[Rfam]
The record is a 364-nucleotide RNA from Taibaiella sp., which matches "Bacterial RNase P class A" in Rfam. The match comes from Rfam's covariance-model search (256 bits). It is annotated as a ribozyme. NCBI's taxonomy places the organism under Bacteria, Bacteroidota, Chitinophagia, Chitinophagales, Taibaiella.
RNA sequence: GCUAUAAAGUGGGCUAUCGCUUCAGUGAAAACUGGAGAGGAAAGUCCGGACAUUGCAGAGCAGCGCACUACCUAACAGGUAGGCAUUCCGCGUAAGUGGGGUUGACAGAAAGUGCCACAGAGAAUAACCGUCCUAUUUGGGAUAAGGGUGAAAAUGUAGUGUAAGAGACUACAAUAUGUUUUGGUAACAAAAUAUAUGGGUAAACCUUGCGCAAUGAAAUGCCAAAUAAGCAGGCGCUGGAGGGUUGCUCGCCCGAUGCCUGUGGGUUGGCAGAAUGAGGUAUUAUGCGAAUAAUAUCCCAGAUAAAUGAUAGCCGCUGUAUGAAAAUACAGUACAGAAUCCGGCUUAUAAUUUUAUAGUAAUU
Numbered sequence: 001g002c003u004a005u006a007a008a009g010u011g012g013g014c015u016a017u018c019g020c021u022u023c024a025g026u027g028a029a030a031a032c033u034g035g036a037g038a039g040g041a042a043a044g045u046c047c048g049g050a051c052a053u054u055g056c057a058g059a060g061c062a063g064c065g066c067a068c069u070a071c072c073u074a075a076c077a078g079g080u081a082g083g084c085a086u087u088c089c090g091c092g093u094a095a096g097u098g099g100g101g102u103u104g105a106c107a108g109a110a111a112g113u114g115c116c117a118c119a120g121a122g123a124a125u126a127a128c129c130g131u132c133c134u135a136u137u138u139g140g141g142a143u144a145a146g147g148g149u150g151a152a153a154a155u156g157u158a159g160u161g162u163a164a165g166a167g168a169c170u171a172c173a174a175u176a177u178g179u180u181u182u183g184g185u186a187a188c189a190a191a192a193u194a195u196a197u198g199g200g201u202a203a204a205c206c207u208u209g210c211g212c213a214a215u216g217a218a219a220u221g222c223c224a225a226a227u228a229a230g231c232a233g234g235c236g237c238u239g240g241a242g243g244g245u246u247g248c249u250c251g252c253c254c255g256a257u258g259c260c261u262g263u264g265g266g267u268u269g270g271c272a273g274a275a276u277g278a279g280g281u282a283u284u285a286u287g288c289g290a291a292u293a294a295u296a297u298c299c300c301a302g303a304u305a306a307a308u309g310a311u312a313g314c315c316g317c318u319g320u321a322u323g324a325a326a327a328u329a330c331a332g333u334a335c336a337g338a339a340u341c342c343g344g345c346u347u348a349u350a351a352u353u354u355u356a357u358a359g360u361a362a363u364u
Stems, first nucleotide, its partner, number of pairs: 001360010011349001012315007020037007042347003046344005051216004058250004063212005068082005083106001084104002087101003107207002112205002114201003128147002130143005155173006175196009220272004230263006242254004279298008